[Rfam]
RNA sequence: ACAGAAAAGGGCAAACCUUUCAAAAGAUAGGGUCGCAAAGCUACAGGUCUAAGGUGAUCAACUAUGAUGGCUGAGCUGCUUAAA
Numbered sequence: 001a002c003a004g005a006a007a008a009g010g011g012c013a014a015a016c017c018u019u020u021c022a023a024a025a026g027a028u029a030g031g032g033u034c035g036c037a038a039a040g041c042u043a044c045a046g047g048u049c050u051a052a053g054g055u056g057a058u059c060a061a062c063u064a065u066g067a068u069g070g071c072u073g074a075g076c077u078g079c080u081u082a083a084a
Stems, first nucleotide, its partner, number of pairs: 003081002011036002016031003020027002034070001039077004044073003047068003
Annotation: The family of this 84-nucleotide RNA sequence from Metabacillus litoralis is "c-di-GMP-I-GGC riboswitch aptamer". The family's consensus secondary structure is taken from published work. The family is grouped with related families in Rfam's "c-di-GMP_I riboswitch clan".